[Rfam]
RNA sequence: AUAACAGUGGUUCGAGAACCUCCCACUCAAAAAAACUAAGGAGAA
Numbered sequence: 001a002u003a004a005c006a007g008u009g010g011u012u013c014g015a016g017a018a019c020c021u022c023c024c025a026c027u028c029a030a031a032a033a034a035a036c037u038a039a040g041g042a043g044a045a
Stems, first nucleotide, its partner, number of pairs: 006027005016037001
PreQ1 (pre queuosine) riboswitch aptamer: a 45-nucleotide RNA sequence from Listeria grayi. Pairs were carried over by alignment from the consensus structure. This family is a bacterial riboswitch that binds to the metabolite preQ1, an intermediate in the biosynthesis of the modified nucleoside queuosine from GTP. One example of this riboswitch is located in the leader of the Bacillus subtilis ykvJKLM (queCDEF) operon which encodes four genes necessary for queuosine production. PreQ1 binding to the riboswitch aptamer is thought to induce premature transcription termination within the leader to down-regulate expression of these genes. The match comes from Rfam's covariance-model search (55 bits). On this family, see Reader et al., J Biol Chem 2004: "Identification of four genes necessary for biosynthesis of the modified nucleoside queuosine". Rfam links the family to the GO term queuosine biosynthetic process.